A member of the RNA family "GP20-b RNA", 64 nucleotides long. The base pairs follow the family's consensus structure, which is taken from published work. By type it is a cis-regulatory element.
[Rfam]
RNA sequence: AGCCCAUUCGCAGAGGCUUAUGAGCUGCGGGACGGCGGGUGACGGCGACCACCUAAAAAGCCUA
Numbered sequence: 001a002g003c004c005c006a007u008u009c010g011c012a013g014a015g016g017c018u019u020a021u022g023a024g025c026u027g028c029g030g031g032a033c034g035g036c037g038g039g040u041g042a043c044g045g046c047g048a049c050c051a052c053c054u055a056a057a058a059a060g061c062c063u064a
Stems, first nucleotide, its partner, number of pairs: 001018004009029005038053004